Notes:
This 276-nucleotide RNA sequence from Oncorhynchus tshawytscha belongs to the Rfam family "Group I catalytic intron". From the family's description: Group I catalytic introns are large self-splicing ribozymes. A search with the family's covariance model found it, with a score of 92 bits. The source organism's lineage runs through Eukaryota, Deuterostomia, Craniata, Salmoniformes and Oncorhynchus. A reference for the family is Cate et al. (1996), "Crystal structure of a group I ribozyme domain: principles of RNA packing", Science.
[Rfam]
RNA sequence: UCACAACGGUUAACAGCAUUAGCCGCUUCACAAAGUAAUUCGUGAAGAAAACUUCCUUAAUUGCUGGAAACCCCUUAGAGCCUUCUCCCAACAACGUAACUGGAAACGGUAAGCGUGAGUGGUUGAAAAGAGAUGGAUUGGGCAAUCAGCAGCCAAGCACCUGUCAAAUGGUGAAGGUUCAACGACUAGGCGAAAGCCGUACAUCCAAGUGGAUGGAAAUGGGAAGCCCCUAUUAAUAGGGUGAAGAUAUAGUCUAUUCUCUGCGGAAACGUAGAG
Numbered sequence: 001u002c003a004c005a006a007c008g009g010u011u012a013a014c015a016g017c018a019u020u021a022g023c024c025g026c027u028u029c030a031c032a033a034a035g036u037a038a039u040u041c042g043u044g045a046a047g048a049a050a051a052c053u054u055c056c057u058u059a060a061u062u063g064c065u066g067g068a069a070a071c072c073c074c075u076u077a078g079a080g081c082c083u084u085c086u087c088c089c090a091a092c093a094a095c096g097u098a099a100c101u102g103g104a105a106a107c108g109g110u111a112a113g114c115g116u117g118a119g120u121g122g123u124u125g126a127a128a129a130g131a132g133a134u135g136g137a138u139u140g141g142g143c144a145a146u147c148a149g150c151a152g153c154c155a156a157g158c159a160c161c162u163g164u165c166a167a168a169u170g171g172u173g174a175a176g177g178u179u180c181a182a183c184g185a186c187u188a189g190g191c192g193a194a195a196g197c198c199g200u201a202c203a204u205c206c207a208a209g210u211g212g213a214u215g216g217a218a219a220u221g222g223g224a225a226g227c228c229c230c231u232a233u234u235a236a237u238a239g240g241g242u243g244a245a246g247a248u249a250u251a252g253u254c255u256a257u258u259c260u261c262u263g264c265g266g267a268a269a270c271g272u273a274g275a276g
Stems, first nucleotide, its partner, number of pairs: 005027001007025007031042001033040001052226004057221001062151006072142003152178002160170001182255001184254005228241005261274005